[Rfam]
RNA sequence: GUUAGAGGUUGGGUCUUUGUAGGCAAGGUGAGUGCUUUACCACGCUCCCUCAACUGGCCUACAAAGUCCCAGUUUCUGGC
Numbered sequence: 001g002u003u004a005g006a007g008g009u010u011g012g013g014u015c016u017u018u019g020u021a022g023g024c025a026a027g028g029u030g031a032g033u034g035c036u037u038u039a040c041c042a043c044g045c046u047c048c049c050u051c052a053a054c055u056g057g058c059c060u061a062c063a064a065a066g067u068c069c070c071a072g073u074u075u076c077u078g079g080c
Base pairs, nucleotide, nucleotide: 003078004077005076006075007074008073010071011070012069013068015066016065017064018063019062021060022059023058024057026055027054029052030051031050032049
Dot-bracket structure: ..((((((.((((.(((((.((((.((.((((................)))).)).)))).))))).)))).))))))..
A member of the RNA family "mir-193 microRNA precursor family" from Pangasianodon hypophthalmus, 80 nucleotides long. A search with the family's covariance model found it, with a score of 69 bits. The family has 54 seed sequences and 1,158 matches in Rfam 15.1.